[Rfam]
RNA: Salmonella enterica Typhi npcRNA 44
Organism: Shimwellia blattae
RNA sequence: CUUUAAAAAUCUGGAACAAGCUGAAAAUUGAAACAAUAAACGCGUAAGCGUUUAUGAGUCUCUCUAAAUUAUCACACCUGAAGACAUCUUCGG
Numbered sequence: 001c002u003u004u005a006a007a008a009a010u011c012u013g014g015a016a017c018a019a020g021c022u023g024a025a026a027a028u029u030g031a032a033a034c035a036a037u038a039a040a041c042g043c044g045u046a047a048g049c050g051u052u053u054a055u056g057a058g059u060c061u062c063u064c065u066a067a068a069u070u071a072u073c074a075c076a077c078c079u080g081a082a083g084a085c086a087u088c089u090u091c092g093g
Stems, first nucleotide, its partner, number of pairs: 020075001023073002026070004034056002038053006079092003083088001